The record is a 66-nucleotide sequence from Alligator sinensis, which matches "Mammalian CPEB3 ribozyme" in Rfam.
RNA sequence: UUCGAAGCAAUAGGCAAAAGUGUUCACAGCACGGCCUGUCAGAUUCCAGUGAGUCUGAAUUCUGCU
Numbered sequence: 001u002u003c004g005a006a007g008c009a010a011u012a013g014g015c016a017a018a019a020g021u022g023u024u025c026a027c028a029g030c031a032c033g034g035c036c037u038g039u040c041a042g043a044u045u046c047c048a049g050u051g052a053g054u055c056u057g058a059a060u061u062c063u064g065c066u
Base pairs, nucleotide, nucleotide: 004036007035008034012066014065015064016063018061019060020032021031022030040057041056042055043054044053045052046051
A search with the family's covariance model found it, with a score of 37 bits.
The base pairs follow the family's consensus structure, which is taken from published work.